RNA sequence: AAAGUCCUGCUAUGGAAGGAGUAGCUAGCUCUGCCAUAUAACGAGUCUUGCGCUACUGAAGGUAACGACAGUAGUGAAGCGUAGACAGUGAAACAUUCGAGCCGAAACCAAAUGGUGAACGUGAUAGUCCCGAAAUUUUAUUGGUAGUGGAGUUGAUGCGCUACACAACGCAGUAAACAACAGAAGUCUUGAGGUUAUAACUAGCAAAUCCAAUAAUCUUCAAUCACCGGGAUCUUAGGCAU
Numbered sequence: 001a002a003a004g005u006c007c008u009g010c011u012a013u014g015g016a017a018g019g020a021g022u023a024g025c026u027a028g029c030u031c032u033g034c035c036a037u038a039u040a041a042c043g044a045g046u047c048u049u050g051c052g053c054u055a056c057u058g059a060a061g062g063u064a065a066c067g068a069c070a071g072u073a074g075u076g077a078a079g080c081g082u083a084g085a086c087a088g089u090g091a092a093a094c095a096u097u098c099g100a101g102c103c104g105a106a107a108c109c110a111a112a113u114g115g116u117g118a119a120c121g122u123g124a125u126a127g128u129c130c131c132g133a134a135a136u137u138u139u140a141u142u143g144g145u146a147g148u149g150g151a152g153u154u155g156a157u158g159c160g161c162u163a164c165a166c167a168a169c170g171c172a173g174u175a176a177a178c179a180a181c182a183g184a185a186g187u188c189u190u191g192a193g194g195u196u197a198u199a200a201c202u203a204g205c206a207a208a209u210c211c212a213a214u215a216a217u218c219u220u221c222a223a224u225c226a227c228c229g230g231g232a233u234c235u236u237a238g239g240c241a242u
Stems, first nucleotide, its partner, number of pairs: 012037004018032004022207001024205002039091001041089002045086004049081002051076008061066001124236001127233006147227004152178003157172004183221004189212001191210002
Group II catalytic intron D1-D4-6: a 242-nucleotide RNA from Oppiella nova. The family has 174 seed sequences and 1,617 matches in Rfam 15.1. Taxonomically the source falls in Oppiella (Eukaryota, Panarthropoda, Chelicerata, Oppiidae). It scores 100 bits against the family's covariance model. From the family's description: Group II introns are found in rRNA, tRNA and mRNA of organelles in fungi, plants and protists, and also in mRNA in bacteria.